[Rfam]
RNA: Plastid-clpP 5UTR RNA
Organism: Pleuropterus multiflorus
RNA sequence: CAAUUAUGUUUGUAGAAACAAAGCGAAACAGAUUUAUUUUAUACCCGAUAAGUACCAAUAUGCAAUGGGG
Number, nucleotide and partner (000 for none) at each position: 001c000002a000003a000004u023005u022006a000007u020008g019009u018010u017011u016012g000013u000014a000015g000016a011017a010018a009019c008020a007021a000022a005023g004024c000025g000026a000027a000028a000029c000030a000031g000032a000033u000034u000035u000036a000037u000038u000039u000040u000041a000042u000043a000044c069045c068046c067047g000048a000049u000050a000051a000052g061053u060054a059055c000056c000057a000058a000059u054060a053061u052062g000063c000064a000065a000066u000067g046068g045069g044070g000